[Rfam]
RNA sequence: GAUUUAAAUUUAGCAGUCUGAAAAGGCUGAUGGCUGGUGAUUUUCUUAUCACCAGCCU
Numbered sequence: 001g002a003u004u005u006a007a008a009u010u011u012a013g014c015a016g017u018c019u020g021a022a023a024a025g026g027c028u029g030a031u032g033g034c035u036g037g038u039g040a041u042u043u044u045c046u047u048a049u050c051a052c053c054a055g056c057c058u
Stems, first nucleotide, its partner, number of pairs: 014029005032057010
This 58-nucleotide RNA sequence from Zophobihabitans entericus belongs to the Rfam family "Pseudomonas sRNA P26". From the family's description: This small RNA (sRNA) was computationally identified in the genome of the opportunistic pathogen Pseudomonas aeruginosa and its expression verified by northern blot analysis. It is annotated as a non-coding RNA gene.